This 92-nucleotide sequence from Skermanella aerolata belongs to the Rfam family "Glycine riboswitch aptamer".
For this family Rfam cites "A glycine-dependent riboswitch that uses cooperative binding to control gene expression" (Mandal et al., Science, 2004).

RNA sequence: UCGGAAUCUGCGGGAGAGAGAGGCGGCAUAUCGCCUCCGCCGAAGGCGCAAACUCCCAUAAUCGCUCAGGCAUGCCGAACCGCAGAAACAUU
Numbered sequence: 001u002c003g004g005a006a007u008c009u010g011c012g013g014g015a016g017a018g019a020g021a022g023g024c025g026g027c028a029u030a031u032c033g034c035c036u037c038c039g040c041c042g043a044a045g046g047c048g049c050a051a052a053c054u055c056c057c058a059u060a061a062u063c064g065c066u067c068a069g070g071c072a073u074g075c076c077g078a079a080c081c082g083c084a085g086a087a088a089c090a091u092u
Stems, first nucleotide, its partner, number of pairs: 007086007020037004039071003042067002046065003052059001